[Rfam]
The family of this 83-nucleotide RNA from Ascaris suum is "mir-57 microRNA precursor family". The family has 6 seed sequences and 50 matches in Rfam 15.1. Lineage of the source: Eukaryota > Opisthokonta > Metazoa > Chromadorea > Ascaris. The sequence is in the family's curated seed alignment. The base pairs follow the family's consensus structure, which was predicted with RNAalifold.
RNA sequence: GUGGUUUCGUCUACCCUGUAGUACCGAGCUGUGUUUGAGUGAUUAUGCAUACACGAUCGGUUGCCGGGUGAAUGACGCUGCCC
Numbered sequence: 001g002u003g004g005u006u007u008c009g010u011c012u013a014c015c016c017u018g019u020a021g022u023a024c025c026g027a028g029c030u031g032u033g034u035u036u037g038a039g040u041g042a043u044u045a046u047g048c049a050u051a052c053a054c055g056a057u058c059g060g061u062u063g064c065c066g067g068g069u070g071a072a073u074g075a076c077g078c079u080g081c082c083c
Stems, first nucleotide, its partner, number of pairs: 012070004018064004024060002028058001030056001032055003036051001039048002